This 72-nucleotide RNA from Medicago truncatula belongs to the Rfam family "MIR2629 microRNA precursor family".
The family's consensus secondary structure was predicted with RNAalifold.
[Rfam]
RNA sequence: UCCUGAGGUUUUCCUCGACAGUUAACUGCAACCGAAUUUCUAAAACUUCGGCAGUUAACUGCCGAGGGGCAA
Numbered sequence: 001u002c003c004u005g006a007g008g009u010u011u012u013c014c015u016c017g018a019c020a021g022u023u024a025a026c027u028g029c030a031a032c033c034g035a036a037u038u039u040c041u042a043a044a045a046c047u048u049c050g051g052c053a054g055u056u057a058a059c060u061g062c063c064g065a066g067g068g069g070c071a072a
Base pairs, nucleotide, nucleotide: 012068013067015065016064017063019061020060021059022058023057024056025055026054027053028052029051